[Rfam]
RNA: Mammalian CPEB3 ribozyme
Organism: Alligator sinensis
RNA sequence: AGAGGUCACAAAUUUGAGGCCAUAGCAGAAACACUCAUGGCAUGUGGACCUGUCAGAUUCCAGUAAAUCUGCAAAUUCUGCU
Number, nucleotide and partner (000 for none) at each position: 001a000002g000003a000004g000005g000006u000007c000008a000009c000010a000011a000012a000013u000014u000015u000016g050017a000018g049019g000020c047021c046022a000023u000024a082025g081026c080027a079028g078029a077030a076031a045032c044033a043034c000035u000036c000037a000038u000039g000040g000041c000042a000043u033044g032045u031046g021047g020048a000049c018050c016051u000052g000053u000054c071055a070056g069057a068058u067059u066060c000061c000062a000063g000064u000065a000066a059067a058068u057069c056070u055071g054072c000073a000074a000075a000076u030077u029078c028079u027080g026081c025082u024